This 138-nucleotide RNA from Breoghania corrubedonensis belongs to the Rfam family "Alphaproteobacterial sRNA BjrC1505". It is annotated as a small RNA. Taxonomically the source falls in Breoghania (Bacteria, Alphaproteobacteria, Hyphomicrobiales, Stappiaceae).
RNA sequence: CUUGUUUACCAUGCAUUAAGCAUUCUGGAUUAUUAACAAAAACAUCCAGAAUUUCUGGACCUUGAGUGGCUCCUGUCCACUCUGUUUGACGCCUCCCUGUUAACUUCUCAAGAGCCGCACCCUUGCGGCUCUUUUUUU
Number, nucleotide and partner (000 for none) at each position: 001c000002u011003u000004g000005u000006u000007u000008a000009c000010c000011a002012u000013g033014c000015a000016u000017u032018a031019a030020g000021c028022a000023u000024u000025c000026u000027g000028g021029a000030u019031u018032a017033u013034u000035a000036a000037c000038a000039a000040a000041a000042a000043c000044a000045u059046c058047c057048a000049g000050a000051a000052u000053u000054u000055c000056u000057g047058g046059a045060c000061c000062u000063u000064g082065a081066g080067u079068g078069g077070c000071u000072c000073c000074u000075g000076u000077c069078c068079a067080c066081u065082c064083u000084g000085u000086u000087u000088g101089a100090c099091g098092c000093c000094u000095c000096c000097c000098u091099g090100u089101u088102a000103a000104c000105u000106u000107c000108u000109c000110a133111a132112g131113a130114g129115c128116c127117g126118c125119a124120c000121c000122c000123u000124u119125g118126c117127g116128g115129c114130u113131c112132u111133u110134u000135u000136u000137u000138u000